RNA sequence: UGGAGGUCUGAGAAAGUUGUGCAGUUUGCAUAGUACUGACAUAACUGGUUAUUACCUCCAAUAUUAAAUUUCAAACACUGCAAUAAUACUUGAAUGUUUUUUUUUAUUAAGUAUUUGCUGUGUUUGUAUACAUUUA
Numbered sequence: 001u002g003g004a005g006g007u008c009u010g011a012g013a014a015a016g017u018u019g020u021g022c023a024g025u026u027u028g029c030a031u032a033g034u035a036c037u038g039a040c041a042u043a044a045c046u047g048g049u050u051a052u053u054a055c056c057u058c059c060a061a062u063a064u065u066a067a068a069u070u071u072c073a074a075a076c077a078c079u080g081c082a083a084u085a086a087u088a089c090u091u092g093a094a095u096g097u098u099u100u101u102u103u104u105u106a107u108u109a110a111g112u113a114u115u116u117g118c119u120g121u122g123u124u125u126g127u128a129u130a131c132a133u134u135u136a
Stems, first nucleotide, its partner, number of pairs: 002059005015046004019040002022038004079128003083124001086121003094115001096114002099111001101110002
Background:
This 136-nucleotide sequence from Chanos chanos belongs to the Rfam family "Small nucleolar RNA SNORA47". A reference for the family is Huttenhofer et al. (2001), "RNomics: an experimental approach that identifies 201 candidates for novel, small, non-messenger RNAs in mouse", EMBO J. The family's consensus secondary structure was predicted with WAR. The family has 20 seed sequences and 733 matches in Rfam 15.1.